Notes:
Rfam assigns this 289-nucleotide sequence from Nannochloris sp. 'desiccata' to the family "Metazoan signal recognition particle RNA".
RNA sequence: GCCGGGUGGUGUUGCGACCGUCUGUAACUCAAGUGAGGGCAAAUCUAUGGAACUGCCCUUUGAGCUUUCAUGGCCACGUUUUCUCUGUUUGACGAACAUGCCCUACGCAAGGCAGCCGUCUGUUUAUGUGUCUUUUCGGAAGGGAGGUGUCAAAUUCAGAUAAUUCCUUAGUAAUUCGCACAGGCCGGAAACGGAGCAACGAACUAGGGAGCGGUUGUCGGUGCUAGGAAAACGUGUUUGAGGAGAAGCGUGGAGUCACCGUCGGAGCUUGCUGCGGUGGAACCAUUUU
Numbered sequence: 001g002c003c004g005g006g007u008g009g010u011g012u013u014g015c016g017a018c019c020g021u022c023u024g025u026a027a028c029u030c031a032a033g034u035g036a037g038g039g040c041a042a043a044u045c046u047a048u049g050g051a052a053c054u055g056c057c058c059u060u061u062g063a064g065c066u067u068u069c070a071u072g073g074c075c076a077c078g079u080u081u082u083c084u085c086u087g088u089u090u091g092a093c094g095a096a097c098a099u100g101c102c103c104u105a106c107g108c109a110a111g112g113c114a115g116c117c118g119u120c121u122g123u124u125u126a127u128g129u130g131u132c133u134u135u136u137c138g139g140a141a142g143g144g145a146g147g148u149g150u151c152a153a154a155u156u157c158a159g160a161u162a163a164u165u166c167c168u169u170a171g172u173a174a175u176u177c178g179c180a181c182a183g184g185c186c187g188g189a190a191a192c193g194g195a196g197c198a199a200c201g202a203a204c205u206a207g208g209g210a211g212c213g214g215u216u217g218u219c220g221g222u223g224c225u226a227g228g229a230a231a232a233c234g235u236g237u238u239u240g241a242g243g244a245g246a247a248g249c250g251u252g253g254a255g256u257c258a259c260c261g262u263c264g265g266a267g268c269u270u271g272c273u274g275c276g277g278u279g280g281a282a283c284c285a286u287u288u289u
Stems, first nucleotide, its partner, number of pairs: 001040003004023007028037003047286004053280003057277002060274001062272001064268005070262003074253007082246005088240001094239007102228002107224003111219009120159003125154001127152002132147006160164001165210007176202003185194003

Source information:
The base pairs follow the family's consensus structure, which is taken from published work. A reference for the family is Regalia et al. (2002), "Prediction of signal recognition particle RNA genes", Nucleic Acids Res. It scores 80 bits against the family's covariance model. The signal recognition particle (SRP) is a universally conserved ribonucleoprotein.